[Rfam]
RNA sequence: UACUUUUGCACCCGUCUACCAAUAGAUGGCAGACAUACAUAAGAAUCAUUAAAUAAUAUUGGAAUG
Number, nucleotide and partner (000 for none) at each position: 001u000002a000003c000004u000005u000006u000007u000008g000009c000010a000011c000012c000013c000014g034015u033016c032017u031018a000019c029020c000021a000022a000023u000024a000025g000026a000027u000028g000029g019030c000031a017032g016033a015034c014035a000036u000037a000038c000039a000040u000041a000042a000043g000044a000045a000046u000047c000048a000049u000050u000051a000052a000053a000054u000055a000056a000057u000058a000059u000060u000061g000062g000063a000064a000065u000066g000

Record summary:
This 66-nucleotide RNA from Flavobacterium sp. FPG59 belongs to the Rfam family "S15-Flavobacteria ribosomal protein leader". The organism belongs to Flavobacterium, within Bacteria.